Background:
Rfam assigns this 184-nucleotide RNA sequence from Lederbergia lenta to the family "Lysine riboswitch aptamer". Lineage of the source: Bacteria > Bacillota > Caryophanales > Bacillaceae > Lederbergia. It scores 124 bits against the family's covariance model.
RNA sequence: CGAUGGGAUAGAGGCUGCGGCUUUUAAGAGUAGAACGGGUGAGAUGCAAUGAAAUUGAUGACCUCGUUUGAAAGGAUAAGCUGCCGAAGCAUGGAUCUAUCAUUGUGUAUCUAUGCUGGUGAUGUAUUCGAACAGGAACAUUACUGUCACGUUAUGUUAUAUGACGUGGAGGGCUAUCUUCGGA
Numbered sequence: 001c002g003a004u005g006g007g008a009u010a011g012a013g014g015c016u017g018c019g020g021c022u023u024u025u026a027a028g029a030g031u032a033g034a035a036c037g038g039g040u041g042a043g044a045u046g047c048a049a050u051g052a053a054a055u056u057g058a059u060g061a062c063c064u065c066g067u068u069u070g071a072a073a074g075g076a077u078a079a080g081c082u083g084c085c086g087a088a089g090c091a092u093g094g095a096u097c098u099a100u101c102a103u104u105g106u107g108u109a110u111c112u113a114u115g116c117u118g119g120u121g122a123u124g125u126a127u128u129c130g131a132a133c134a135g136g137a138a139c140a141u142u143a144c145u146g147u148c149a150c151g152u153u154a155u156g157u158u159a160u161a162u163g164a165c166g167u168g169g170a171g172g173g174c175u176a177u178c179u180u181c182g183g184a
Stems, first nucleotide, its partner, number of pairs: 006179006017084007025076001033069007088117009098107002118145008127136002147169007